The family of this 84-nucleotide sequence from Aotus nancymaae is "mir-548 microRNA precursor family". The literature on the family includes a 2010 paper in Blood by Jima et al., "Deep sequencing of the small RNA transcriptome of normal and malignant human B cells identifies hundreds of novel microRNAs". Pairs were carried over by alignment from the consensus structure, which was predicted with WAR.

RNA sequence: UAUCAGGUUGGUGCAAAAGUAAUUGUGGUUUUUGCCACUGAAAGGAAUGGCAAAAGCCACAGUUACUUUUGCACCAACCUGAUA
Number, nucleotide and partner (000 for none) at each position: 001u084002a083003u082004c081005a080006g079007g078008u077009u076010g075011g074012u073013g072014c071015a070016a069017a068018a067019g066020u065021a064022a063023u062024u061025g060026u059027g058028g057029u056030u055031u054032u053033u052034g051035c050036c049037a048038c000039u046040g000041a000042a000043a000044g000045g000046a039047a000048u037049g036050g035051c034052a033053a032054a031055a030056g029057c028058c027059a026060c025061a024062g023063u022064u021065a020066c019067u018068u017069u016070u015071g014072c013073a012074c011075c010076a009077a008078c007079c006080u005081g004082a003083u002084a001